[Rfam]
RNA sequence: GGUCAAGAGCGACCAGCGAUACGCCCUCCGCGUGCUGGUCCGGCAACCGCGCCACCCCGCGCACGGUGCCCCAGGAGGAAGACCGGCCCGCCACGACCGUGGCGGGAAGGAGCGAAG
Numbered sequence: 001g002g003u004c005a006a007g008a009g010c011g012a013c014c015a016g017c018g019a020u021a022c023g024c025c026c027u028c029c030g031c032g033u034g035c036u037g038g039u040c041c042g043g044c045a046a047c048c049g050c051g052c053c054a055c056c057c058c059g060c061g062c063a064c065g066g067u068g069c070c071c072c073a074g075g076a077g078g079a080a081g082a083c084c085g086g087c088c089c090g091c092c093a094c095g096a097c098c099g100u101g102g103c104g105g106g107a108a109g110g111a112g113c114g115a116a117g
Stems, first nucleotide, its partner, number of pairs: 001084004009041001012039006022032002042070003047066003051060002087106008

SAM (S-adenosyl methionine) riboswitch aptamer: a 117-nucleotide sequence from Paraoerskovia marina. The base pairs follow the family's consensus structure, which is taken from published work. It scores 60 bits against the family's covariance model. NCBI's taxonomy places the organism under Bacteria, Actinomycetes, Micrococcales, Cellulomonadaceae, Paraoerskovia. From the family's description: SAM-IV is a mRNA element that regulates gene expression via direct sensing of S-adenosylmethionine (SAM or AdoMet).